[Rfam]
RNA sequence: GGUGGGCAAAGGAUGAUGAAAUGUUUAGAUGGGUGAGGGGGAAGUUUCCCUCAUGAUCGCAACUUUUAAGGCUUAUUGAUAUUCUGACUUGGCCACC
Numbered sequence: 001g002g003u004g005g006g007c008a009a010a011g012g013a014u015g016a017u018g019a020a021a022u023g024u025u026u027a028g029a030u031g032g033g034u035g036a037g038g039g040g041g042a043a044g045u046u047u048c049c050c051u052c053a054u055g056a057u058c059g060c061a062a063c064u065u066u067u068a069a070g071g072c073u074u075a076u077u078g079a080u081a082u083u084c085u086g087a088c089u090u091g092g093c094c095a096c097c
Stems, first nucleotide, its partner, number of pairs: 001097005007091001009090003
RNA: Small nucleolar RNA Z266
Organism: Punica granatum